MIR812 microRNA precursor family: a 189-nucleotide RNA from Oryza barthii.

[Rfam]
RNA sequence: UUCAAGUGUAUUUGUGGUUUCUGUGUUCAAUAUUUAACCAUCUAUCUUAUAUAUUUUUUUUAUGGUUGGUAUUUUUAUUGUUAUUAGAUGAUGAAAUAUGAAUAUUACUUUAUGCAUGAUUUUUUUUUAUUUUUUCAUAUUUUUUUAAAUAAGACAGACGGUCAAACGUUGAAUACAAAUAUACUUAAA
Numbered sequence: 001u002u003c004a005a006g007u008g009u010a011u012u013u014g015u016g017g018u019u020u021c022u023g024u025g026u027u028c029a030a031u032a033u034u035u036a037a038c039c040a041u042c043u044a045u046c047u048u049a050u051a052u053a054u055u056u057u058u059u060u061u062a063u064g065g066u067u068g069g070u071a072u073u074u075u076u077a078u079u080g081u082u083a084u085u086a087g088a089u090g091a092u093g094a095a096a097u098a099u100g101a102a103u104a105u106u107a108c109u110u111u112a113u114g115c116a117u118g119a120u121u122u123u124u125u126u127u128u129a130u131u132u133u134u135u136c137a138u139a140u141u142u143u144u145u146u147a148a149a150u151a152a153g154a155c156a157g158a159c160g161g162u163c164a165a166a167c168g169u170u171g172a173a174u175a176c177a178a179a180u181a182u183a184c185u186u187a188a189a
Base pairs, nucleotide, nucleotide: 026173027172028171029170030169031168033166034165035164037162038161039160041158042157043156045154046153047152048151049150050149
Rfam links the family to the GO terms RISC complex and miRNA-mediated post-transcriptional gene silencing.
The match comes from Rfam's covariance-model search (88 bits).
Rfam 15.1 lists 57,451 matches to the family in 24 species.